[Rfam]
RNA sequence: UGCCAUGAUGUCGUAAUUUGCGUCCUACCCUGCGCCUGGUGACAGUUGCCUGCUGUCGGUGUGCCAGCGCAGGUGGCUGACGAGCCUUUCACUCUGAGCA
Numbered sequence: 001u002g003c004c005a006u007g008a009u010g011u012c013g014u015a016a017u018u019u020g021c022g023u024c025c026u027a028c029c030c031u032g033c034g035c036c037u038g039g040u041g042a043c044a045g046u047u048g049c050c051u052g053c054u055g056u057c058g059g060u061g062u063g064c065c066a067g068c069g070c071a072g073g074u075g076g077c078u079g080a081c082g083a084g085c086c087u088u089u090c091a092c093u094c095u096g097a098g099c100a
Stems, first nucleotide, its partner, number of pairs: 001100003021082004030072005039064002041057005
This 100-nucleotide sequence from Ceyx cyanopectus belongs to the Rfam family "Small nucleolar RNA SNORD16".
The family's consensus secondary structure was predicted with PFOLD.
Rfam links the family to the GO terms RNA processing and nucleolus.
The family has 5 seed sequences and 1,321 matches in Rfam 15.1.
On this family, see Fragapane et al., EMBO J 1993: "A novel small nucleolar RNA (U16) is encoded inside a ribosomal protein intron and originates by processing of the pre-mRNA".
The source organism's lineage runs through Eukaryota, Archelosauria, Telluraves, Alcedinidae and Ceyx.